[Rfam]
RNA sequence: UCGAUACCGAAUGCCCAACCAGCACAAACGCCGGAUAAACUGGCGGAGGAACCGCGACGGGCGCAGCUCCCGGGCGGUUCUACCAAUGAUCAGCCAGCAGCCGCUGCAACCCCAGGGAG
Numbered sequence: 001u002c003g004a005u006a007c008c009g010a011a012u013g014c015c016c017a018a019c020c021a022g023c024a025c026a027a028a029c030g031c032c033g034g035a036u037a038a039a040c041u042g043g044c045g046g047a048g049g050a051a052c053c054g055c056g057a058c059g060g061g062c063g064c065a066g067c068u069c070c071c072g073g074g075c076g077g078u079u080c081u082a083c084c085a086a087u088g089a090u091c092a093g094c095c096a097g098c099a100g101c102c103g104c105u106g107c108a109a110c111c112c113c114a115g116g117g118a119g
Stems, first nucleotide, its partner, number of pairs: 049080006058072004095106004
The family of this 119-nucleotide RNA from Streptomyces sp. SAJ15 is "Streptomyces-metK RNA". The base pairs follow the family's consensus structure, which is taken from published work.